[Rfam]
RNA sequence: GCUACGUUGCGGCUCAUCAUCGGGCAACUUUGCUUUCUUUGCAACGCAAGCUGCCUUUUGAAGGGCAAUACCGUAAC
Numbered sequence: 001g002c003u004a005c006g007u008u009g010c011g012g013c014u015c016a017u018c019a020u021c022g023g024g025c026a027a028c029u030u031u032g033c034u035u036u037c038u039u040u041g042c043a044a045c046g047c048a049a050g051c052u053g054c055c056u057u058u059u060g061a062a063g064g065g066c067a068a069u070a071c072c073g074u075a076a077c
Stems, first nucleotide, its partner, number of pairs: 004074003008070002012066004017061003023055002029050005
Notes: Shown here is a 77-nucleotide RNA from Dufourea novaeangliae, a member of the family "mir-980 microRNA precursor family". The base pairs follow the family's consensus structure, which was predicted with RNAalifold. It scores 57 bits against the family's covariance model. The source organism's lineage runs through Eukaryota, Allotriocarida, Pterygota, Eumetabola and Dufourea.